[Rfam]
Nucleotides: 088
Stems, first nucleotide, its partner, number of pairs: 012037002017032006040082004046078003049073002052070007
Number, partner (000 for none) and nucleotide at each position: 001000u002000c003000u004000c005000g006000u007000c008000a009000a010000g011000a012037g013036c014000a015000c016000a017032c018031c019030c020029g021028g022027c023000g024000u025000g026000a027022g028021c029020c030019g031018g032017g033000g034000c035000c036013g037012c038000a039000a040082a041081g042080c043079c044000g045000a046078c047077g048076g049073a050072u051000g052070c053069u054068c055067c056066c057065c058064g059000a060000c061000c062000c063000c064058c065057g066056g067055g068054g069053g070052g071000g072050a073049u074000g075000g076048c077047c078046g079043g080042g081041c082040u083000g084000c085000c086000g087000a088000g
The family of this 88-nucleotide RNA from Rehaibacterium terrae is "c-di-GMP-I riboswitch aptamer". The family is grouped with related families in Rfam's "c-di-GMP_I riboswitch clan". GEMM was predicted in a large-scale screen for bacterial structured RNA regulatory elements. Rfam links the family to the GO term cyclic-di-GMP binding. It scores 43 bits against the family's covariance model.